[Rfam]
RNA sequence: CGAUCUCGACAGGGGCGUCUGCGAUUGCAGGCUGAGAAGGACCCUUUGAACCUGAACCAGAUCAUGCUGGCGGAGGGAGUCGCGACGGCGCAUUC
Numbered sequence: 001c002g003a004u005c006u007c008g009a010c011a012g013g014g015g016c017g018u019c020u021g022c023g024a025u026u027g028c029a030g031g032c033u034g035a036g037a038a039g040g041a042c043c044c045u046u047u048g049a050a051c052c053u054g055a056a057c058c059a060g061a062u063c064a065u066g067c068u069g070g071c072g073g074a075g076g077g078a079g080u081c082g083c084g085a086c087g088g089c090g091c092a093u094u095c
Stems, first nucleotide, its partner, number of pairs: 007082004011045004016039001017032005051076003057070004
TPP riboswitch aptamer (THI element): a 95-nucleotide sequence from Pseudorhizobium pelagicum.
Taxonomically the source falls in Pseudorhizobium (Bacteria, Alphaproteobacteria, Hyphomicrobiales, Rhizobiaceae).